RNA: Purine riboswitch aptamer
RNA sequence: CAUUAGAAACUAAAUAUAACCUGUAUAACCUCUAGAAUAUGGCUAGAGGGUCUCUACCAGGAACCAUAAAAUCCUGAUUACAGAAAAUGAAUUAUUCGUU
Number, nucleotide and partner (000 for none) at each position: 001c000002a000003u000004u000005a000006g000007a000008a000009a000010c000011u000012a000013a000014a000015u000016a000017u000018a000019a000020c000021c083022u082023g081024u080025a079026u000027a000028a000029c049030c048031u047032c046033u045034a044035g043036a000037a000038u000039a000040u000041g000042g000043c035044u034045a033046g032047a031048g030049g029050g000051u000052c000053u000054c000055u000056a000057c000058c076059a075060g074061g073062a072063a000064c000065c000066a000067u000068a000069a000070a000071a000072u062073c061074c060075u059076g058077a000078u000079u025080a024081c023082a022083g021084a000085a000086a000087a000088u000089g000090a000091a000092u000093u000094a000095u000096u000097c000098g000099u000100u000